RNA sequence: GAACCUCUGGUGAAAGGUACAUGAAUGUUC
Numbered sequence: 001g002a003a004c005c006u007c008u009g010g011u012g013a014a015a016g017g018u019a020c021a022u023g024a025a026u027g028u029u030c
Stems, first nucleotide, its partner, number of pairs: 001030004008025001010022003
The record is a 30-nucleotide RNA sequence from Pitta sordida, which matches "L19-Flavobacteria ribosomal protein leader" in Rfam. The family's RNA type in Rfam is cis-regulatory leader. The source organism's lineage runs through Eukaryota, Eumetazoa, Bilateria, Pittidae and Pitta. For this family Rfam cites "Discovery of 20 novel ribosomal leader candidates in bacteria and archaea" (Eckert and Weinberg, BMC Microbiol, 2020).